[Rfam]
Shown here is an 86-nucleotide RNA from Polarella glacialis, a member of the family "Selenocysteine transfer RNA".
Clan: tRNA clan.
The organism belongs to Polarella, within Eukaryota.
It scores 51 bits against the family's covariance model.
RNA sequence: GUCAGGGUGAGUCGGGCUGGUGCCCAGACAAAACUUCAACUCUUGGGGCAUGGGGACAUGCAGGAGUUCAAUUCUCCUUCCCUGAU
Numbered sequence: 001g002u003c004a005g006g007g008u009g010a011g012u013c014g015g016g017c018u019g020g021u022g023c024c025c026a027g028a029c030a031a032a033a034c035u036u037c038a039a040c041u042c043u044u045g046g047g048g049c050a051u052g053g054g055g056a057c058a059u060g061c062a063g064g065a066g067u068u069c070a071a072u073u074c075u076c077c078u079u080c081c082c083u084g085a086u
Stems, first nucleotide, its partner, number of pairs: 001086007009078001012027001014025004029045003033041001048061005063077004